[Rfam]
RNA sequence: UUUGGGGGAAGUAGUGGUCUGUUAAGUUGGGGAAAAAGACAUUAUCCCUUGAGGUAAAAUUAGGUUUGCUUCCUUUUACUCCCAAAAUCUUUUUACCGUGGGUAAAAAAAUUAUCAUGGGGGUAUAAAAGGAACCAAAUUUAAAUUUAACUCAAGGAAUCAUGAUGUCGUUUUCCCCAACAGGACGUGUCAUUAUUUUCUCCAAG
Numbered sequence: 001u002u003u004g005g006g007g008g009a010a011g012u013a014g015u016g017g018u019c020u021g022u023u024a025a026g027u028u029g030g031g032g033a034a035a036a037a038g039a040c041a042u043u044a045u046c047c048c049u050u051g052a053g054g055u056a057a058a059a060u061u062a063g064g065u066u067u068g069c070u071u072c073c074u075u076u077u078a079c080u081c082c083c084a085a086a087a088u089c090u091u092u093u094u095a096c097c098g099u100g101g102g103u104a105a106a107a108a109a110a111u112u113a114u115c116a117u118g119g120g121g122g123u124a125u126a127a128a129a130g131g132a133a134c135c136a137a138a139u140u141u142a143a144a145u146u147u148a149a150c151u152c153a154a155g156g157a158a159u160c161a162u163g164a165u166g167u168c169g170u171u172u173u174c175c176c177c178a179a180c181a182g183g184a185c186g187u188g189u190c191a192u193u194a195u196u197u198u199c200u201c202c203a204a205g
Base pairs, nucleotide, nucleotide: 003203004202005201006200007199008198009197010196011195012194013193014192015191016190017189018188020186021185022184023183026180027179028178029177030176031175032174033173034172035171041165042164043163044162045158047156049154050153051152052151053150055148056147057146058145060143061142062141063140064139065138066137067136068135070133071132072131073130074129075128076127077124078123079122080121081120082119083118084117090108091107092106093105094104095103096102097101

MIR2670 microRNA precursor family: a 205-nucleotide RNA from Medicago truncatula. The family's consensus secondary structure was predicted with RNAalifold. The organism belongs to Medicago, within Eukaryota. Gene Ontology terms of the family: miRNA-mediated post-transcriptional gene silencing and RISC complex.